The record is a 112-nucleotide sequence from Photobacterium ganghwense, which matches "Gammaprotebacteria rimP leader" in Rfam. Gene Ontology term of the family: regulation of gene expression.
RNA sequence: GUAAGAACUGUGAUUAUCAGGGUCCAGUGAUAAUAAACCCCGUAAUUCGGGGUUUUUUAUUAUCUGAAAUAUGACCAUUCAGGUAUCUACUGGGCUUUAUAGCCCUUUUUUU
Numbered sequence: 001g002u003a004a005g006a007a008c009u010g011u012g013a014u015u016a017u018c019a020g021g022g023u024c025c026a027g028u029g030a031u032a033a034u035a036a037a038c039c040c041c042g043u044a045a046u047u048c049g050g051g052g053u054u055u056u057u058u059a060u061u062a063u064c065u066g067a068a069a070u071a072u073g074a075c076c077a078u079u080c081a082g083g084u085a086u087c088u089a090c091u092g093g094g095c096u097u098u099a100u101a102g103c104c105c106u107u108u109u110u111u112u
Base pairs, nucleotide, nucleotide: 035055036054037053038052039051040050041049042048092105093104094103095102